[Rfam]
RNA: Small nucleolar RNA snoR74
RNA sequence: AAAAAAGCAGGGAUCUGUUGCCAUUUGUGAACGGGUCUCUUGUAAACUUCAGGGAUAAAAAUCCGUAAUGUUAUUGGGUGAACCUAUUGACAUAUUGGAUGAUUGAUGGUUCAGUAAACAAUGCUACAUUU
Numbered sequence: 001a002a003a004a005a006a007g008c009a010g011g012g013a014u015c016u017g018u019u020g021c022c023a024u025u026u027g028u029g030a031a032c033g034g035g036u037c038u039c040u041u042g043u044a045a046a047c048u049u050c051a052g053g054g055a056u057a058a059a060a061a062u063c064c065g066u067a068a069u070g071u072u073a074u075u076g077g078g079u080g081a082a083c084c085u086a087u088u089g090a091c092a093u094a095u096u097g098g099a100u101g102a103u104u105g106a107u108g109g110u111u112c113a114g115u116a117a118a119c120a121a122u123g124c125u126a127c128a129u130u131u
Stems, first nucleotide, its partner, number of pairs: 005049003011038002014035004066123002069120004079113006